A member of the RNA family "Proteo-phage-1 RNA", 79 nucleotides long.
It is annotated as a small RNA.
RNA sequence: CCCCGGCCUGGCGGGGCGCGUGACGCGAUAGCCAGGACGCCCCAGCCGGCGGUGGGCGAUCAGGCAAACACCGGCAGCC
Numbered sequence: 001c002c003c004c005g006g007c008c009u010g011g012c013g014g015g016g017c018g019c020g021u022g023a024c025g026c027g028a029u030a031g032c033c034a035g036g037a038c039g040c041c042c043c044a045g046c047c048g049g050c051g052g053u054g055g056g057c058g059a060u061c062a063g064g065c066a067a068a069c070a071c072c073g074g075c076a077g078c079c
Base pairs, nucleotide, nucleotide: 001015002014003013007036008035009034010033011032018026019025020024038058039057040056041055045075046074047073048072049071

Annotation:
The sequence is in the family's curated seed alignment.